[Rfam]
RNA: MIR1435 microRNA precursor family
Organism: Oryza punctata
RNA sequence: UCGACUAUUUUUCUAGUCAAACUUUUUUAAGUUUGACAAGUUUAUAAAAACAAUUAGCGACAUUUGUAAUACAAAACAAACAUACUAUCAAAAUAUAUUUAAUGUUUCAUUUAAUGAAACUAAUUUGAUGUUGUAAAUGUUGCUAAAUUGUUCUAUAAAUUUAGUCAAACUUAAAGGAGUUUGACUAGAAAAAAGUCAAA
Number, nucleotide and partner (000 for none) at each position: 001u000002c000003g000004a000005c195006u194007a000008u193009u192010u191011u000012u189013c188014u187015a186016g185017u184018c183019a182020a181021a180022c179023u178024u177025u176026u175027u174028u000029a000030a000031g000032u169033u168034u167035g166036a165037c000038a000039a000040g000041u000042u000043u155044a154045u000046a152047a151048a000049a149050a148051c000052a000053a000054u000055u145056a144057g143058c000059g141060a140061c139062a138063u137064u136065u135066g134067u133068a132069a000070u000071a000072c127073a126074a125075a124076a000077c000078a000079a000080a000081c000082a000083u000084a000085c000086u000087a000088u000089c000090a000091a000092a000093a000094u000095a000096u000097a000098u000099u000100u000101a000102a000103u000104g000105u000106u000107u000108c000109a000110u000111u000112u000113a000114a000115u000116g000117a000118a000119a000120c000121u000122a000123a000124u075125u074126u073127g072128a000129u000130g000131u000132u068133g067134u066135a065136a064137a063138u062139g061140u060141u059142g000143c057144u056145a055146a000147a000148u050149u049150g000151u047152u046153c000154u044155a043156u000157a000158a000159a000160u000161u000162u000163a000164g000165u036166c035167a034168a033169a032170c000171u000172u000173a000174a027175a026176g025177g024178a023179g022180u021181u020182u019183g018184a017185c016186u015187a014188g013189a012190a000191a010192a009193a008194a006195g005196u000197c000198a000199a000200a000